[Rfam]
Rfam assigns this 68-nucleotide RNA from Aleadryas rufinucha to the family "mir-8/mir-141/mir-200 microRNA precursor family". For this family Rfam cites "Identification of novel genes coding for small expressed RNAs" (Lagos-Quintana et al., Science, 2001). The base pairs follow the family's consensus structure, which was predicted with RNAalifold.
RNA sequence: CUCACCAUCUUACUGGGCAGCAUUGGACGAUUUCUGCUUCUCUAAUACUGCCUGGUAAUGAUGAUGAA
Numbered sequence: 001c002u003c004a005c006c007a008u009c010u011u012a013c014u015g016g017g018c019a020g021c022a023u024u025g026g027a028c029g030a031u032u033u034c035u036g037c038u039u040c041u042c043u044a045a046u047a048c049u050g051c052c053u054g055g056u057a058a059u060g061a062u063g064a065u066g067a068a
Base pairs, nucleotide, nucleotide: 002067003066004065006063007062008061009060010058011057012056013055014054015053016052017051018050019049020048022046023045024044025043026042027041
Lineage of the source: Eukaryota > Gnathostomata > Teleostomi > Telluraves > Aleadryas. Its family is annotated with RISC complex and miRNA-mediated post-transcriptional gene silencing in the Gene Ontology.